[Rfam]
RNA sequence: UGCAUGCUUUCCAUCAGCAUGCAAUUCUGAAGAGGCACACCUGAAUUGCCGGAAGUGCGGUAGGGACAACCCUCCAAUCCAAGGCAGACAAAGCCGGAUCAAAGCCCGUGGCAGGGCGUUGGUCCACUGUUCGCGCGGUAGAGCGUGUCUUGCGU
Numbered sequence: 001u002g003c004a005u006g007c008u009u010u011c012c013a014u015c016a017g018c019a020u021g022c023a024a025u026u027c028u029g030a031a032g033a034g035g036c037a038c039a040c041c042u043g044a045a046u047u048g049c050c051g052g053a054a055g056u057g058c059g060g061u062a063g064g065g066a067c068a069a070c071c072c073u074c075c076a077a078u079c080c081a082a083g084g085c086a087g088a089c090a091a092a093g094c095c096g097g098a099u100c101a102a103a104g105c106c107c108g109u110g111g112c113a114g115g116g117c118g119u120u121g122g123u124c125c126a127c128u129g130u131u132c133g134c135g136c137g138g139u140a141g142a143g144c145g146u147g148u149c150u151u152g153c154g155u
Stems, first nucleotide, its partner, number of pairs: 001023008034050004057136003083095002104117004
A member of the RNA family "speF leader" from Rhizobium sp. NFR07, 155 nucleotides long. This family is a putative regulatory RNA structure that is found upstream of the speF gene encoding ornithine decarboxylase in Agrobacterium tumefaciens and other alpha-proteobacteria. The family's RNA type in Rfam is cis-regulatory leader. The literature on the family includes a 2012 paper in RNA Biol by del Val et al., "A survey of sRNA families in alpha-proteobacteria".